[Rfam]
RNA sequence: GUGGUCUGAAGGUAAGUUGCUCUUAGUACGAGAGGAACAGGGCAACGGCGUCUCUGGUCGAUCGGUUGUCUGACAAGGCAGUGCCGAGCAGCUACGCGCCAAAGAAUAAGAGCUGAAAGCAUCUAAGCUCGAAAUCCAACCUGAAAAGAGACCACUGUAAGGAUACCGGUAAAAGACCGGUUUAAUAGGAUCGGGAUGUAAGCACUAAGGAAACGAGGUGUUAAGUCCGCGGUUACUAAUAAUCCGUGCCG
Number, nucleotide and partner (000 for none) at each position: 001g155002u154003g153004g152005u151006c150007u149008g000009a000010a142011g141012g140013u139014a000015a000016g046017u045018u044019g043020c042021u041022c040023u039024u000025a000026g000027u000028a000029c000030g000031a000032g000033a000034g000035g000036a000037a000038c000039a023040g022041g021042g020043c019044a018045a017046c016047g100048g099049c098050g097051u096052c000053u000054c000055u094056g093057g092058u000059c000060g000061a000062u087063c086064g085065g084066u083067u080068g079069u078070c077071u076072g000073a000074c000075a000076a071077g070078g069079c068080a067081g000082u000083g066084c065085c064086g063087a062088g000089c000090a000091g000092c057093u056094a055095c000096g051097c050098g049099c048100c047101a000102a000103a000104g136105a135106a000107u000108a000109a000110g130111a129112g128113c127114u126115g000116a000117a000118a000119g000120c000121a000122u000123c000124u000125a000126a114127g113128c112129u111130c110131g000132a000133a000134a000135u105136c104137c000138a000139a013140c012141c011142u010143g000144a000145a000146a000147a000148g000149a007150g006151a005152c004153c003154a002155c001156u000157g000158u000159a000160a000161g245162g244163a243164u242165a181166c180167c179168g178169g177170u000171a000172a000173a000174a000175g000176a000177c169178c168179g167180g166181u165182u000183u000184a000185a000186u238187a237188g236189g234190a233191u232192c231193g230194g228195g227196a226197u000198g000199u000200a000201a000202g221203c220204a219205c218206u217207a000208a000209g214210g000211a000212a000213a000214c209215g000216a000217g206218g205219u204220g203221u202222u000223a000224a000225g000226u196227c195228c194229g000230c193231g192232g191233u190234u189235a000236c188237u187238a186239a000240u000241a000242a164243u163244c162245c161246g000247u000248g000249c000250c000251g000